[Rfam]
RNA: Lysine riboswitch aptamer
RNA sequence: GUUUGAUGUAGAGGCGCGAUAUUUAUCAGUAGUUCAUAAGAGGGUGAUACCUAUGAUGAUGAAUGAAAGGGGAUAUCGCCGAAGUAGGUAUCGCUGGUAAAUAAUUCAGCUAAGCUUAUCAAGCUGCUUACUGGGGUUACGCCGAAUAGGUGUAACACUGCCAUAGUUUGUGCGAAUUUAUUUUUGAUGUUGUGGUUAAAUAUCAAACGAAUAGAUUGCGCAGUAUUUUUAUACUAUGGAGCGCUACUGUAGGC
Dot-bracket structure: .......((((....(((((((((.......((((((.(.................).))))))......)))))))))...((((((((..................................))))))))((.((((((((.....)))))))).)).(((((((.................................................................)))))))....)))).......